[Rfam]
RNA sequence: ACUGCUUUUCUUUGAUAUCCCUGAAUUGAGGAGCCCGUCGUUCACGCCGGUUAGGUUCAAGAACGACGGGCAUUUUCUU
Numbered sequence: 001a002c003u004g005c006u007u008u009u010c011u012u013u014g015a016u017a018u019c020c021c022u023g024a025a026u027u028g029a030g031g032a033g034c035c036c037g038u039c040g041u042u043c044a045c046g047c048c049g050g051u052u053a054g055g056u057u058c059a060a061g062a063a064c065g066a067c068g069g070g071c072a073u074u075u076u077c078u079u
Stems, first nucleotide, its partner, number of pairs: 033071011

The record is a 79-nucleotide RNA sequence from Dickeya dadantii, which matches "RybB RNA" in Rfam. Pairs were carried over by alignment from the consensus structure, which was predicted with PFOLD. This ncRNA was identified in a large scale screen of E. coli. The function of this short RNA is unknown. The exact 5' and 3' ends of this RNA are uncertain. The literature on the family includes a 2001 paper in Genes Dev by Wassarman et al., "Identification of novel small RNAs using comparative genomics and microarrays".